[Rfam]
RNA sequence: UGCCAAGAACCGUGAGGAAACUGUCUCCCCUUACGGAUCGGGCGAAAUAAAACACGAAGGAG
Numbered sequence: 001u002g003c004c005a006a007g008a009a010c011c012g013u014g015a016g017g018a019a020a021c022u023g024u025c026u027c028c029c030c031u032u033a034c035g036g037a038u039c040g041g042g043c044g045a046a047a048u049a050a051a052a053c054a055c056g057a058a059g060g061a062g
Base pairs, nucleotide, nucleotide: 003042004041007039008038010036011035012034013033014032015031016030017029